This 73-nucleotide sequence from Indicator maculatus belongs to the Rfam family "mir-148/mir-152 microRNA precursor family". The base pairs follow the family's consensus structure, which was predicted with RNAalifold. For this family Rfam cites "Identification of tissue-specific microRNAs from mouse" (Lagos-Quintana et al., Curr Biol, 2002). Rfam links the family to the GO terms miRNA-mediated post-transcriptional gene silencing and RISC complex. Lineage of the source: Eukaryota > Deuterostomia > Vertebrata > Sauria > Indicator. The match comes from Rfam's covariance-model search (69 bits).
RNA sequence: CGGGGGCGAGGUUCUGUCCUACACUCCGGCUGUGGCUAAGGGCAGUCAGUGCAUCACAGAACUUGGUCCCAGG
Number, nucleotide and partner (000 for none) at each position: 001c000002g000003g000004g069005g068006g067007c066008g000009a064010g063011g062012u061013u060014c059015u058016g057017u000018c000019c000020u000021a000022c051023a050024c049025u048026c000027c000028g047029g046030c045031u044032g000033u000034g000035g000036c000037u000038a000039a000040g000041g000042g000043c000044a031045g030046u029047c028048a025049g024050u023051g022052c000053a000054u000055c000056a000057c016058a015059g014060a013061a012062c011063u010064u009065g000066g007067u006068c005069c004070c000071a000072g000073g000